A member of the RNA family "M-box riboswitch aptamer (ykoK leader)" from Desulfotomaculum copahuensis, 175 nucleotides long. The organism belongs to Desulfotomaculum, within Bacteria. M-box riboswitch, also know as ykoK leader is described as a metaloregulatory RNA that sense divalent metals and function as a genetic control element of genes related to divalent metal transport in bacteria. It was first reported upstream of the B.subtilis ykoK gene and genes with related functions in other bacteria. The literature on the family includes a 2007 paper in Cell by Dann CE 3rd et al., "Structure and mechanism of a metal-sensing regulatory RNA". The match comes from Rfam's covariance-model search (131 bits).
[Rfam]
RNA sequence: AAUAAUCCUCGUUAGGUGAGGCUUCUGCAUAGAGCACACGCCACUGCCCGGAAAUGUCGAGAGACACCAACUGGGUUAACAGGUAUGGCCGGAUUAAGGCUUUACUUAAUGUGGCUGAGGCUUUAUACAGUCUCUAGCUAUGUACGUGCCAAAGCUCGGACGAGUGGGGAAGACA
Numbered sequence: 001a002a003u004a005a006u007c008c009u010c011g012u013u014a015g016g017u018g019a020g021g022c023u024u025c026u027g028c029a030u031a032g033a034g035c036a037c038a039c040g041c042c043a044c045u046g047c048c049c050g051g052a053a054a055u056g057u058c059g060a061g062a063g064a065c066a067c068c069a070a071c072u073g074g075g076u077u078a079a080c081a082g083g084u085a086u087g088g089c090c091g092g093a094u095u096a097a098g099g100c101u102u103u104a105c106u107u108a109a110u111g112u113g114g115c116u117g118a119g120g121c122u123u124u125a126u127a128c129a130g131u132c133u134c135u136a137g138c139u140a141u142g143u144a145c146g147u148g149c150c151a152a153a154g155c156u157c158g159g160a161c162g163a164g165u166g167g168g169g170a171a172g173a174c175a
Stems, first nucleotide, its partner, number of pairs: 006170005011161002013097001015156003020150003025146001026144007040115005047074002050071001055066004082106004088100003117134005